[Rfam]
RNA sequence: CUCACAUCCAUGUGUGUAGGAUCCCAAAGGAUAACCAUUAAAUUUGACACAGAUGUCUAGAAAAGUUAUUACAUGGAUGUGGGACUUUACUUUUCUAGGGAUCUGUGUCAAAUUUAAUGGUGAUCCUUUAAGGUCCUACACACAUGGUUGUGGG
Numbered sequence: 001c002u003c004a005c006a007u008c009c010a011u012g013u014g015u016g017u018a019g020g021a022u023c024c025c026a027a028a029g030g031a032u033a034a035c036c037a038u039u040a041a042a043u044u045u046g047a048c049a050c051a052g053a054u055g056u057c058u059a060g061a062a063a064a065g066u067u068a069u070u071a072c073a074u075g076g077a078u079g080u081g082g083g084a085c086u087u088u089a090c091u092u093u094u095c096u097a098g099g100g101a102u103c104u105g106u107g108u109c110a111a112a113u114u115u116a117a118u119g120g121u122g123a124u125c126c127u128u129u130a131a132g133g134u135c136c137u138a139c140a141c142a143c144a145u146g147g148u149u150g151u152g153g154g
Stems, first nucleotide, its partner, number of pairs: 002153005008147006015140009026129003030125003034121021056099011068087001069082005
Shown here is a 154-nucleotide sequence from Amborella trichopoda, a member of the family "MIR8565 microRNA precursor family".
NCBI's taxonomy places the organism under Eukaryota, Viridiplantae, Streptophyta, Amborellales, Amborella.
Its family is annotated with miRNA-mediated post-transcriptional gene silencing and RISC complex in the Gene Ontology.